A member of the RNA family "mir-3338 microRNA precursor family" from Heliconius melpomene, 83 nucleotides long.
The source organism's lineage runs through Eukaryota, Opisthokonta, Lepidoptera, Neolepidoptera and Heliconius.
Rfam 15.1 lists 21 matches to the family in 21 species.
Rfam links the family to the GO terms miRNA-mediated post-transcriptional gene silencing and RISC complex.

RNA sequence: AGAAUGUUUCAUAGCAAACACAGUAGUGUACAAUGCUAAGUUGACAUACGCAUGUACUUACUUUGUUUGUUCUGGAAUCUUCU
Numbered sequence: 001a002g003a004a005u006g007u008u009u010c011a012u013a014g015c016a017a018a019c020a021c022a023g024u025a026g027u028g029u030a031c032a033a034u035g036c037u038a039a040g041u042u043g044a045c046a047u048a049c050g051c052a053u054g055u056a057c058u059u060a061c062u063u064u065g066u067u068u069g070u071u072c073u074g075g076a077a078u079c080u081u082c083u
Stems, first nucleotide, its partner, number of pairs: 002082003006078006013071008022062005028057005034052003